[Rfam]
RNA sequence: CUCUGGCCCGCAUUUCAUGGGCACAGGGCGCGAAAGAG
Numbered sequence: 001c002u003c004u005g006g007c008c009c010g011c012a013u014u015u016c017a018u019g020g021g022c023a024c025a026g027g028g029c030g031c032g033a034a035a036g037a038g
Stems, first nucleotide, its partner, number of pairs: 001028005006022005
Shown here is a 38-nucleotide sequence, a member of the family "L31-Firmicutes ribosomal protein leader". For this family Rfam cites "Discovery of 20 novel ribosomal leader candidates in bacteria and archaea" (Eckert and Weinberg, BMC Microbiol, 2020).